[Rfam]
RNA sequence: GGGGCCGUUCUGGAUUCGACUGGUAUAGGUUGCGCCCCAACUGCACUCCGUAGCGGCAUCUACGUUAAAAGGUCCAGUUUAAUUAUAACUGCAAAAAAUAAUAACAAUUCUUACGCUUUAGCUGCUUAAUAGGCGCUUAACGUAGAUCCUCCUAGGCUUGUCCGUGGUCUAGAUCUGGGUCCUAAAUUUAACGGACUUACGCUAACGACUCCCACCUGAAGUACGUUAGAAGAGAAAAAUCAGGUUAGCUGUUCAUGUGGGCCCUGACAGGCGGCAAGUUGGGCAGUGAAACCUUAAGUAGUCUGAAUAUGAGUGUAGACGUUGGGGUGGCAAUAUGCUAGGACGCGGGUUCGAUCCCCGCCGGCUCCAUAU
Numbered sequence: 001g002g003g004g005c006c007g008u009u010c011u012g013g014a015u016u017c018g019a020c021u022g023g024u025a026u027a028g029g030u031u032g033c034g035c036c037c038c039a040a041c042u043g044c045a046c047u048c049c050g051u052a053g054c055g056g057c058a059u060c061u062a063c064g065u066u067a068a069a070a071g072g073u074c075c076a077g078u079u080u081a082a083u084u085a086u087a088a089c090u091g092c093a094a095a096a097a098a099u100a101a102u103a104a105c106a107a108u109u110c111u112u113a114c115g116c117u118u119u120a121g122c123u124g125c126u127u128a129a130u131a132g133g134c135g136c137u138u139a140a141c142g143u144a145g146a147u148c149c150u151c152c153u154a155g156g157c158u159u160g161u162c163c164g165u166g167g168u169c170u171a172g173a174u175c176u177g178g179g180u181c182c183u184a185a186a187u188u189u190a191a192c193g194g195a196c197u198u199a200c201g202c203u204a205a206c207g208a209c210u211c212c213c214a215c216c217u218g219a220a221g222u223a224c225g226u227u228a229g230a231a232g233a234g235a236a237a238a239a240u241c242a243g244g245u246u247a248g249c250u251g252u253u254c255a256u257g258u259g260g261g262c263c264c265u266g267a268c269a270g271g272c273g274g275c276a277a278g279u280u281g282g283g284c285a286g287u288g289a290a291a292c293c294u295u296a297a298g299u300a301g302u303c304u305g306a307a308u309a310u311g312a313g314u315g316u317a318g319a320c321g322u323u324g325g326g327g328u329g330g331c332a333a334u335a336u337g338c339u340a341g342g343a344c345g346c347g348g349g350u351u352c353g354a355u356c357c358c359c360g361c362c363g364g365c366u367c368c369a370u371a372u
Stems, first nucleotide, its partner, number of pairs: 001368007020341008033329009044315005049064005055075002057072001059070001118140004123135003145181005152172007160196006204226001208222003214245006248287008261275003268305002272301001345361005
The record is a 372-nucleotide RNA from Levilactobacillus brevis, which matches "transfer-messenger RNA" in Rfam. The family is grouped with related families in Rfam's "tRNA clan". The family's RNA type in Rfam is non-coding RNA gene. The base pairs follow the family's consensus structure, which is taken from published work. Rfam's curators put it in the seed alignment.